[Rfam]
RNA sequence: AAGUGCUUAUAUGACUGACGGAAGUGGAAAUGACCACAGGGAGUAUAAGCCAGGGAAGCCGACCGUCUGGGCAUAUAUG
Numbered sequence: 001a002a003g004u005g006c007u008u009a010u011a012u013g014a015c016u017g018a019c020g021g022a023a024g025u026g027g028a029a030a031u032g033a034c035c036a037c038a039g040g041g042a043g044u045a046u047a048a049g050c051c052a053g054g055g056a057a058g059c060c061g062a063c064c065g066u067c068u069g070g071g072c073a074u075a076u077a078u079g
Stems, first nucleotide, its partner, number of pairs: 005050008015040002017067005024037004056074001058072003

Shown here is a 79-nucleotide sequence from Firmicutes bacterium CAG:424, a member of the family "ZMP/ZTP riboswitch aptamer (pfl RNA motif)".
NCBI's taxonomy places the organism under Bacteria, Bacillati, Bacillota.
The base pairs follow the family's consensus structure, which is taken from published work.